This 99-nucleotide RNA from Cryptosporangium phraense belongs to the Rfam family "Glycine riboswitch aptamer". The family is grouped with related families in Rfam's "Glycine riboswitch clan". Its family is annotated with glycine biosynthetic process in the Gene Ontology. A reference for the family is Mandal et al. (2004), "A glycine-dependent riboswitch that uses cooperative binding to control gene expression", Science.

RNA sequence: CCGGACGACUCUGGAAAGCAGGCGCACUGUCGCGCCUCACCGACGGUGCAAGCCCCCGCGCGGGUGAAGCUCUCAGGUACCGAUGACAGAGGGGGAGAC
Numbered sequence: 001c002c003g004g005a006c007g008a009c010u011c012u013g014g015a016a017a018g019c020a021g022g023c024g025c026a027c028u029g030u031c032g033c034g035c036c037u038c039a040c041c042g043a044c045g046g047u048g049c050a051a052g053c054c055c056c057c058g059c060g061c062g063g064g065u066g067a068a069g070c071u072c073u074c075a076g077g078u079a080c081c082g083a084u085g086a087c088a089g090a091g092g093g094g095g096a097g098a099c
Base pairs, nucleotide, nucleotide: 006094009091010090011089012088013087020037021036022035023034039078040077041076042074043073046072048070052065053064054063055062